[Rfam]
A member of the RNA family "Fluoride riboswitch aptamer (crcB RNA motif)" from Sinomicrobium oceani, 67 nucleotides long.
RNA sequence: AAAAUCAGUGGCAAUGGUGUCUGCCCUGAACCGCCCUUUUACAAGGGAUAAUGGCGCCUGUUAUCGU
Numbered sequence: 001a002a003a004a005u006c007a008g009u010g011g012c013a014a015u016g017g018u019g020u021c022u023g024c025c026c027u028g029a030a031c032c033g034c035c036c037u038u039u040u041a042c043a044a045g046g047g048a049u050a051a052u053g054g055c056g057c058c059u060g061u062u063a064u065c066g067u
Stems, first nucleotide, its partner, number of pairs: 010025004016058006034047005

A reference for the family is Baker et al. (2012), "Widespread genetic switches and toxicity resistance proteins for fluoride", Science. NCBI's taxonomy places the organism under Bacteria, Pseudomonadati, Bacteroidota, Flavobacteriaceae, Sinomicrobium. Rfam 15.1 lists 2,293 matches to the family in 1,982 species.